Shown here is a 107-nucleotide RNA sequence from Rahnella aquatilis, a member of the family "Yersinia sRNA 224". The literature on the family includes a 2016 paper in Proc Natl Acad Sci U S A by Righetti et al., "Temperature-responsive in vitro RNA structurome of Yersinia pseudotuberculosis". Taxonomically the source falls in Rahnella aquatilis (Bacteria, Pseudomonadota, Gammaproteobacteria, Rahnella).
RNA sequence: AGGGCUCUGGAAUGAAUAUCAGAAUCAGUGAAAACAGGCAGAUCGUAAAGACGCCGUAAAAUCAUCCCUGAUGGCUCGAACCGCGCCAUCCAUGGCGCGGACGCUUU
Numbered sequence: 001a002g003g004g005c006u007c008u009g010g011a012a013u014g015a016a017u018a019u020c021a022g023a024a025u026c027a028g029u030g031a032a033a034a035c036a037g038g039c040a041g042a043u044c045g046u047a048a049a050g051a052c053g054c055c056g057u058a059a060a061a062u063c064a065u066c067c068c069u070g071a072u073g074g075c076u077c078g079a080a081c082c083g084c085g086c087c088a089u090c091c092a093u094g095g096c097g098c099g100g101a102c103g104c105u106u107u
Stems, first nucleotide, its partner, number of pairs: 014106002017103001020028001022026001030077002041066003045063001051057002081100008
Dot-bracket structure: .............((.(..(.(...).).((.........(((.(.....((...)).....)))).........))...((((((((....))))))))..).)).
Record summary:
The match comes from Rfam's covariance-model search (73 bits).